[Rfam]
RNA: Guanidine-I riboswitch aptamer
RNA sequence: GGAAGUGUUUUCUAGGGUUCCGCGGAAUUCGUCCGGUCUGGUCCGAGAGAAAACCCACGGCGAAGAGCCGUGCACACGGAGGGAUAAAAGCCCGGGAGAG
Numbered sequence: 001g002g003a004a005g006u007g008u009u010u011u012c013u014a015g016g017g018u019u020c021c022g023c024g025g026a027a028u029u030c031g032u033c034c035g036g037u038c039u040g041g042u043c044c045g046a047g048a049g050a051a052a053a054c055c056c057a058c059g060g061c062g063a064a065g066a067g068c069c070g071u072g073c074a075c076a077c078g079g080a081g082g083g084a085u086a087a088a089a090g091c092c093c094g095g096g097a098g099a100g
Stems, first nucleotide, its partner, number of pairs: 007054006015044002020041002022038001023035004056072006075095001077098001081093003